[Rfam]
RNA sequence: UUUUCGUAUAAUCUCGGGGAUUGGCCUGAGAGUUUCUACGAGAUCACCAUAAUGAUCUGGCUACGAAAA
Numbered sequence: 001u002u003u004u005c006g007u008a009u010a011a012u013c014u015c016g017g018g019g020a021u022u023g024g025c026c027u028g029a030g031a032g033u034u035u036c037u038a039c040g041a042g043a044u045c046a047c048c049a050u051a052a053u054g055a056u057c058u059g060g061c062u063a064c065g066a067a068a069a
Stems, first nucleotide, its partner, number of pairs: 001069008012031007041058006
RNA: 2dG-II purine riboswitch aptamer
Organism: Paenibacillus sp. J45TS6